A member of the RNA family "Mammalian CPEB3 ribozyme" from Crocodylus porosus, 77 nucleotides long. A search with the family's covariance model found it, with a score of 42 bits.

RNA sequence: AGUCGCAAGUUUGAGGCCAUAGCAGAAGUACUCACAGUGCAGCCUAUUAGAUUCCAAUGAAAUCUGUGAAUUCUGCU
Numbered sequence: 001a002g003u004c005g006c007a008a009g010u011u012u013g014a015g016g017c018c019a020u021a022g023c024a025g026a027a028g029u030a031c032u033c034a035c036a037g038u039g040c041a042g043c044c045u046a047u048u049a050g051a052u053u054c055c056a057a058u059g060a061a062a063u064c065u066g067u068g069a070a071u072u073c074u075g076c077u
Stems, first nucleotide, its partner, number of pairs: 015044003021077007028040003048066006

The base pairs follow the family's consensus structure, which is taken from published work.